Eukaryotic small subunit ribosomal RNA: a 166-nucleotide part of an RNA from Thamnidium elegans. The family's consensus secondary structure is taken from published work.

RNA sequence: CCGCCCGUCGCUACUACCGAUUGAAUGGUUAUAGUGAGCAUAUGGGAUCAGUAGGAUUAGACUGGCAACAGUCUUUCCCUGCAGAGAACUAUGGCAAACUAGGCUAUUUAGAGGAAGUAAAAGUCGUAACAAGGUUUCCGUAGGUGAACCUGCGGAAGGAUCAUUA
Numbered sequence: 001c002c003g004c005c006c007g008u009c010g011c012u013a014c015u016a017c018c019g020a021u022u023g024a025a026u027g028g029u030u031a032u033a034g035u036g037a038g039c040a041u042a043u044g045g046g047a048u049c050a051g052u053a054g055g056a057u058u059a060g061a062c063u064g065g066c067a068a069c070a071g072u073c074u075u076u077c078c079c080u081g082c083a084g085a086g087a088a089c090u091a092u093g094g095c096a097a098a099c100u101a102g103g104c105u106a107u108u109u110a111g112a113g114g115a116a117g118u119a120a121a122a123g124u125c126g127u128a129a130c131a132a133g134g135u136u137u138c139c140g141u142a143g144g145u146g147a148a149c150c151u152g153c154g155g156a157a158g159g160a161u162c163a164u165u166a
Stems, first nucleotide, its partner, number of pairs: 001133001003130001006126002009123001012119004017114002021110001023109008032101004038095002044089001048085002051082005060073004135158010
On this family, see Cannone et al., BMC Bioinformatics 2002: "The comparative RNA web (CRW) site: an online database of comparative sequence and structure information for ribosomal, intron, and other RNAs". The source organism's lineage runs through Eukaryota, Mucoromycotina, Mucoromycetes, Mucoraceae and Thamnidium.